[Rfam]
RNA sequence: GGAGUUGGUCAGGCAGUCGCUCGUUUCGUCCGCGAAACGGGAGGAAAGUCCGGGCUCCAACGGGCAGGGUGCCAGGUAACGCCUGGGGGGCGCGAGCCCACGGAAAGUGCCGCAGAAAAGAUACCGCCGAUCCCGCGCCCGUCGCGGGAGGUAAGGGUGAAAUGGUGCGGUAAGAGCGCACCGCGCCGGUGGCAACAUCGGUGGCAGGGUAAACCCCACCCGGAGCAAGACCAAAUAGGGGGACAUGCGGCUUCGACCGCGACGCGCGGCCCGCGCGUGUUCCCGGGUAGGUCGCUUGAGGCGCAUGGCGACAUGCGUCCCAGAUGAAUGGCUGUCCUCGACAGAACCCGGCUUAUCGGCCAACUCCCUCC
Number, nucleotide and partner (000 for none) at each position: 001g367002g366003a365004g364005u363006u362007g361008g360009u359010c358011a356012g336013g335014c334015a333016g332017u331018c330019g000020c041021u040022c039023g038024u037025u036026u035027c034028g033029u000030c000031c000032g000033c028034g027035a026036a025037a024038c023039g022040g021041g020042a000043g000044g000045a000046a354047a353048g352049u000050c351051c350052g349053g348054g347055c225056u224057c223058c222059a000060a000061c000062g272063g271064g270065c269066a000067g221068g220069g219070u218071g217072c086073c085074a084075g083076g082077u000078a000079a000080c000081g000082c076083c075084u074085g073086g072087g101088g099089g098090g097091c096092g000093c000094g000095a000096g091097c090098c089099c088100a000101c087102g216103g215104a000105a000106a000107g214108u213109g210110c209111c208112g000113c000114a000115g000116a000117a000118a000119a000120g000121a000122u000123a000124c156125c155126g152127c151128c150129g000130a000131u149132c148133c147134c146135g145136c144137g000138c000139c000140c000141g000142u000143c000144g136145c135146g134147g133148g132149a131150g128151g127152u126153a000154a000155g125156g124157g000158u000159g000160a000161a000162a000163u000164g182165g181166u180167g179168c178169g177170g000171u000172a000173a000174g000175a000176g000177c169178g168179c167180a166181c165182c164183g205184c203185g202186c201187c200188g199189g198190u197191g196192g000193c000194a000195a000196c191197a190198u189199c188200g187201g186202u185203g184204g000205c183206a000207g000208g111209g110210u109211a000212a000213a108214c107215c103216c102217c071218a070219c069220c068221c067222g058223g057224a056225g055226c000227a000228a000229g293230a292231c291232c290233a000234a000235a000236u000237a000238g000239g284240g283241g282242g281243a280244c279245a000246u000247g000248c000249g000250g000251c000252u000253u000254c000255g000256a000257c000258c000259g000260c000261g000262a000263c277264g276265c275266g274267c273268g000269g065270c064271c063272c062273g267274c266275g265276c264277g263278u000279g244280u243281u242282c241283c240284c239285g000286g000287g000288u000289a000290g232291g231292u230293c229294g000295c000296u000297u000298g000299a000300g319301g318302c317303g316304c315305a314306u313307g312308g000309c000310g000311a000312c307313a306314u305315g304316c303317g302318u301319c300320c000321c000322a000323g000324a000325u000326g000327a000328a000329u000330g018331g017332c016333u015334g014335u013336c012337c000338u000339c000340g000341a000342c000343a000344g000345a000346a000347c054348c053349c052350g051351g050352c048353u047354u046355a000356u011357c000358g010359g009360c008361c007362a006363a005364c004365u003366c002367c001368c000369u000370c000371c000
Bacterial RNase P class A: a 371-nucleotide RNA sequence from Thiocystis violascens. It scores 333 bits against the family's covariance model. The family's consensus secondary structure is taken from published work. Rfam's curators write: Ribonuclease P (RNase P) is a ubiquitous endoribonuclease, found in archaea, bacteria and eukarya as well as chloroplasts and mitochondria. Rfam classes the family as a ribozyme.